Source information:
mir-8799 microRNA precursor family: a 91-nucleotide RNA from Canis lupus. Lineage of the source: Eukaryota > Opisthokonta > Eumetazoa > Carnivora > Canis lupus. Its Rfam clan is "mir-8791 microRNA precursor clan".

[Rfam]
RNA sequence: UGGGGGAUGCAGGAUCCUGGGCUGUGCCCCCCGGCACCCUGGGAUCUGAGGCCUGUGUUGCUGGAAUCGUGCUCCCAGGCUGCAGCUCCCA
Dot-bracket structure: ((((((..((.((..((.(((.((((.(..(((((((...(.(.(....).)).))))))..))...)))).)))..))))))..))))))